Description: A member of the RNA family "Histone 3' UTR stem-loop" from Larimichthys crocea, 46 nucleotides long. Rfam links the family to the GO term mRNA 3'-end processing by stem-loop binding and cleavage. Rfam describes the family as follows. The mRNAs of metazoan histone genes lack a poly-A tail. 3' end processing occurs at a site between a highly conserved stem-loop (modelled by this family) and a purine rich region around 20 nts downstream (the histone downstream element, or HDE). The stem-loop is bound by a 31 kDa stem-loop binding protein (SLBP - also termed the histone hairpin binding protein, or HBP). Together with U7 snRNA binding of the HDE, SLBP binding nucleate s the formation of the processing complex. The family's consensus secondary structure is taken from published work. It is annotated as a cis-regulatory element.

RNA sequence: ACAAAGGCUCUUUUAAGAGCCACCCACACCCUUGUUAAAGAGUUGU
Numbered sequence: 001a002c003a004a005a006g007g008c009u010c011u012u013u014u015a016a017g018a019g020c021c022a023c024c025c026a027c028a029c030c031c032u033u034g035u036u037a038a039a040g041a042g043u044u045g046u
Stems, first nucleotide, its partner, number of pairs: 006021006